[Rfam]
Description
Rfam assigns this 214-nucleotide RNA to the family "IS605-orfB-I RNA". By type it is a small RNA. It is one of the family's seed sequences.
RNA sequence: GUCCUAUACAGAUGUAUCAACGCAAGACAGUUGAGCAUCUCCCUUUAGGAUGUUGUUUAUCCAGAAGCUUCAGCAACAAUCUUUAUCGUGUGGCUCAAGUCGAAAUAAGGUGAGUUGAAGUGGAAUAGGUUAACCGUAAGACCUCGAGUUGAAAAACUCUAAAAUUGACCUAGAAAUGAAGUUGUAAAAUUUCGCUAUUUCUAGUUACGGUUGG
Numbered sequence: 001g002u003c004c005u006a007u008a009c010a011g012a013u014g015u016a017u018c019a020a021c022g023c024a025a026g027a028c029a030g031u032u033g034a035g036c037a038u039c040u041c042c043c044u045u046u047a048g049g050a051u052g053u054u055g056u057u058u059a060u061c062c063a064g065a066a067g068c069u070u071c072a073g074c075a076a077c078a079a080u081c082u083u084u085a086u087c088g089u090g091u092g093g094c095u096c097a098a099g100u101c102g103a104a105a106u107a108a109g110g111u112g113a114g115u116u117g118a119a120g121u122g123g124a125a126u127a128g129g130u131u132a133a134c135c136g137u138a139a140g141a142c143c144u145c146g147a148g149u150u151g152a153a154a155a156a157c158u159c160u161a162a163a164a165u166u167g168a169c170c171u172a173g174a175a176a177u178g179a180a181g182u183u184g185u186a187a188a189a190u191u192u193c194g195c196u197a198u199u200u201c202u203a204g205u206u207a208c209g210g211u212u213g214g
Stems, first nucleotide, its partner, number of pairs: 001051006008044001010040006017034005022028001067121008081110006092101002127144005133211006139165001146159005170204008178193005